[Rfam]
RNA sequence: UCACCAAUCACUCCCCUCCAACCAAGACCUAUAGGGAGUAUAAAUUACGUCUUUCAUAUCCAGUAGUGAGGGAUUGCUGGAAAUAAGUUUCGCU
Numbered sequence: 001u002c003a004c005c006a007a008u009c010a011c012u013c014c015c016c017u018c019c020a021a022c023c024a025a026g027a028c029c030u031a032u033a034g035g036g037a038g039u040a041u042a043a044a045u046u047a048c049g050u051c052u053u054u055c056a057u058a059u060c061c062a063g064u065a066g067u068g069a070g071g072g073a074u075u076g077c078u079g080g081a082a083a084u085a086a087g088u089u090u091c092g093c094u
Base pairs, nucleotide, nucleotide: 011038012037013036014035015034017033024053025052026051027050028049059081060080061079062078063077064076065075
Rfam assigns this 94-nucleotide RNA to the family "PhotoRC-II RNA".
By type it is a cis-regulatory element.